[Rfam]
RNA: pan motif
Organism: Fontibacillus phaseoli
RNA sequence: GAGGCGAUAUCGUUUGUUCGAAUUGCACUCAUGAGGGCACAAUAUAGCUUAGUUUGUUUUUGCAAUAGGGUUUCCACGGGUGACGUUGGAUUCUGCUCUGAGCCGAAGAGGACCGAGACAGAAAG
Numbered sequence: 001g002a003g004g005c006g007a008u009a010u011c012g013u014u015u016g017u018u019c020g021a022a023u024u025g026c027a028c029u030c031a032u033g034a035g036g037g038c039a040c041a042a043u044a045u046a047g048c049u050u051a052g053u054u055u056g057u058u059u060u061u062g063c064a065a066u067a068g069g070g071u072u073u074c075c076a077c078g079g080g081u082g083a084c085g086u087u088g089g090a091u092u093c094u095g096c097u098c099u100g101a102g103c104c105g106a107a108g109a110g111g112a113c114c115g116a117g118a119c120a121g122a123a124a125g
Stems, first nucleotide, its partner, number of pairs: 001030003004026005010021002093121003096117003100113001103111002